[Rfam]
RNA sequence: UCUUCAUUUCGCGUGCUCUCUCUCCGGUCAGAGAGGCGAGAGAGUGAUCGAAAUGAAGAGA
Numbered sequence: 001u002c003u004u005c006a007u008u009u010c011g012c013g014u015g016c017u018c019u020c021u022c023u024c025c026g027g028u029c030a031g032a033g034a035g036g037c038g039a040g041a042g043a044g045u046g047a048u049c050g051a052a053a054u055g056a057a058g059a060g061a
Stems, first nucleotide, its partner, number of pairs: 001059007010050001014046004019041004
RNA: mir-8364 microRNA precursor family
Organism: Pristionchus pacificus